This 341-nucleotide RNA sequence from Pochonia chlamydosporia belongs to the Rfam family "Nuclear RNase P". The family is grouped with related families in Rfam's "RNaseP clan". Ribonuclease P (RNase P) is a ubiquitous endoribonuclease, found in archaea, bacteria and eukarya as well as chloroplasts and mitochondria. Its best characterised activity is the generation of mature 5'-ends of tRNAs by cleaving the 5'-leader elements of precursor-tRNAs. It scores 42 bits against the family's covariance model. The organism belongs to Pochonia chlamydosporia, within Eukaryota.

[Rfam]
RNA sequence: AGAAUCUCAAUUUAUGCACUUUUUUCCUUUGGAGAAAAGUGCAGAAAUAGUACUUGCAUGUGAGAAAUUCGGAGAAGCCUCUACAACAAGGGAGAUAGGGAAACCUGUUCUCUCUUGACCGCGGUCACUCUCUGGAAACAGAGGGGAGGACGGGUCUGCCCGUGAGGGCUCGGCGUCAAUCGACGCCCGCAGUUGGCAUCAGAAAUGUCAGGGCUGCUCUGUUCCUUUUGGGGAAUUGGAGAUGGUUCCUCUGGGAAGCUGCUGCGUAGAUUGUGUGUUGACACUUGAGUGCGAUGCGUGGCGUGGUCUAGCUGCCAUGAUUCGAUUCCGAUUAUUCUUCU
Dot-bracket structure: .((...[[[..[.((((((((((((((...)))))))))))...............)))..........(((((......((((.........................................................................((((....))))..(((((......))))).(((((.(..............(((...................................)))........).)))))))))..........................]..]]].(((((......))))).......))))).......))..